A member of the RNA family "tRNA" from Podospora anserina, 71 nucleotides long. The organism belongs to Podospora, within Eukaryota. The family's RNA type in Rfam is transfer RNA. The sequence is in the family's curated seed alignment.
RNA sequence: GCCCCUAUAGCUCAAUGGUAGAGCAUAAUACUGUUAAUAUUAUGAUAGAUGUUCGAUUCAUCUUGGGGGCU
Numbered sequence: 001g002c003c004c005c006u007a008u009a010g011c012u013c014a015a016u017g018g019u020a021g022a023g024c025a026u027a028a029u030a031c032u033g034u035u036a037a038u039a040u041u042a043u044g045a046u047a048g049a050u051g052u053u054c055g056a057u058u059c060a061u062c063u064u065g066g067g068g069g070c071u
Stems, first nucleotide, its partner, number of pairs: 001070007010024004026042005047063005
Dot-bracket structure: (((((((..((((.......)))).(((((.......)))))....(((((.......)))))))))))).